[Rfam]
Bacterial large signal recognition particle RNA: a 267-nucleotide RNA from Halanaerobium salsuginis. On this family, see Regalia et al., Nucleic Acids Res 2002: "Prediction of signal recognition particle RNA genes". The base pairs follow the family's consensus structure, which is taken from published work. Taxonomically the source falls in Halanaerobium (Bacteria, Bacillati, Clostridia, Halanaerobiaceae).
RNA sequence: CCGCACUAGAUGGGGUGGUAGCGGUGCCCUGUAACCUGCAAACCGCUAAAGCAGGAUUGAGGCUGUGGCUGAGGAUUUUUUCUUUCAGGGUCUGGCCCUGAUAAGUAGUGUUGACAAUUGGGUCUCGCGCAAUGAAGUCUUGUGAAUCCCGUCAGGUCCGGGAGGAAGCAGCGGUAAGCAAGUCGCUUCAUGUGCCGCGAGGGUGCCUGAUUCGAGCCAACUGUCAGGGUAACGCCUGGGAGAAAAUCUUCGAAGCACAGUGUGCGG
Numbered sequence: 001c002c003g004c005a006c007u008a009g010a011u012g013g014g015g016u017g018g019u020a021g022c023g024g025u026g027c028c029c030u031g032u033a034a035c036c037u038g039c040a041a042a043c044c045g046c047u048a049a050a051g052c053a054g055g056a057u058u059g060a061g062g063c064u065g066u067g068g069c070u071g072a073g074g075a076u077u078u079u080u081u082c083u084u085u086c087a088g089g090g091u092c093u094g095g096c097c098c099u100g101a102u103a104a105g106u107a108g109u110g111u112u113g114a115c116a117a118u119u120g121g122g123u124c125u126c127g128c129g130c131a132a133u134g135a136a137g138u139c140u141u142g143u144g145a146a147u148c149c150c151g152u153c154a155g156g157u158c159c160g161g162g163a164g165g166a167a168g169c170a171g172c173g174g175u176a177a178g179c180a181a182g183u184c185g186c187u188u189c190a191u192g193u194g195c196c197g198c199g200a201g202g203g204u205g206c207c208u209g210a211u212u213c214g215a216g217c218c219a220a221c222u223g224u225c226a227g228g229g230u231a232a233c234g235c236c237u238g239g240g241a242g243a244a245a246a247u248c249u250u251c252g253a254a255g256c257a258c259a260g261u262g263u264g265c266g267g
Base pairs, nucleotide, nucleotide: 001267002266003265004264005263006262009058010057011056012030013029014028015027016026017025019023035055036054037053038052039051063260064259065258066257068256069255070254072250073249074248075247076246077245080244081243082242083241084240085239086238087237088236089235093231094230097228098227099226100225101224102223105221106220108217109216116212117211118210119209120208121207122206123205124201125200126199127198128197129196130192131191133190134189135188136187137186139182140181141180142179143178149174150173151172152171157166158165159164
Dot-bracket structure: ((((((..(((((((((.(...).))))))....(((((...........))))))))....((((.(((.((((((..((((((((((...((..((((((..((.((......((((((((((((((((.(((((.(((((.....((((....(((....)))....))))...)))))...)))))))...))))))...))))))))...))..)).)))))).))...))))))))))))))))...))))))).))))))

The signal recognition particle (SRP) is a universally conserved ribonucleoprotein involved in the co-translational targeting of proteins to membranes. The family's RNA type in Rfam is non-coding RNA gene.